[Rfam]
RNA: SAH (S-adenosyl-L-homocysteine) riboswitch aptamer
Organism: Mizugakiibacter sediminis
RNA sequence: CCCGCCGAGGGGCGCUGCGACUCCGUGCGAACCGGAGCCAGGCUCGGCGCGGCCAACCCCCACAACGGCGCCCGCUGCCA
Numbered sequence: 001c002c003c004g005c006c007g008a009g010g011g012g013c014g015c016u017g018c019g020a021c022u023c024c025g026u027g028c029g030a031a032c033c034g035g036a037g038c039c040a041g042g043c044u045c046g047g048c049g050c051g052g053c054c055a056a057c058c059c060c061c062a063c064a065a066c067g068g069c070g071c072c073c074g075c076u077g078c079c080a
Stems, first nucleotide, its partner, number of pairs: 003049006021037005